RNA sequence: UAUAUUUUAGGUGAUGGAGUUCGCCUUUAACCGCAAUUAAAAUGCUAAUGACUCCUGUCUAUAU
Numbered sequence: 001u002a003u004a005u006u007u008u009a010g011g012u013g014a015u016g017g018a019g020u021u022c023g024c025c026u027u028u029a030a031c032c033g034c035a036a037u038u039a040a041a042a043u044g045c046u047a048a049u050g051a052c053u054c055c056u057g058u059c060u061a062u063a064u
Stems, first nucleotide, its partner, number of pairs: 010025004016055006033045003
RNA: Fluoride riboswitch aptamer (crcB RNA motif)
Organism: Oceanotoga teriensis